[Rfam]
RNA sequence: CCAAAGGCUCUUUUAAGAGCCACCCACACAUGUAUAAGGUGCAAA
Numbered sequence: 001c002c003a004a005a006g007g008c009u010c011u012u013u014u015a016a017g018a019g020c021c022a023c024c025c026a027c028a029c030a031u032g033u034a035u036a037a038g039g040u041g042c043a044a045a
Stems, first nucleotide, its partner, number of pairs: 006021006

The family of this 45-nucleotide RNA sequence from Anguilla anguilla is "Histone 3' UTR stem-loop". About the family: The mRNAs of metazoan histone genes lack a poly-A tail. 3' end processing occurs at a site between a highly conserved stem-loop (modelled by this family) and a purine rich region around 20 nts downstream (the histone downstream element, or HDE). NCBI's taxonomy places the organism under Eukaryota, Craniata, Actinopteri, Neopterygii, Anguilla. Rfam classes the family as a cis-regulatory element.